[Rfam]
RNA: Histone 3' UTR stem-loop
Organism: Parambassis ranga
RNA sequence: ACAAAGGCUCUUUUAAGAGCCACCACAACAUCCACAAAGAGCUCAU
Numbered sequence: 001a002c003a004a005a006g007g008c009u010c011u012u013u014u015a016a017g018a019g020c021c022a023c024c025a026c027a028a029c030a031u032c033c034a035c036a037a038a039g040a041g042c043u044c045a046u
Base pairs, nucleotide, nucleotide: 006021007020008019009018010017011016
Dot-bracket structure: .....((((((....)))))).........................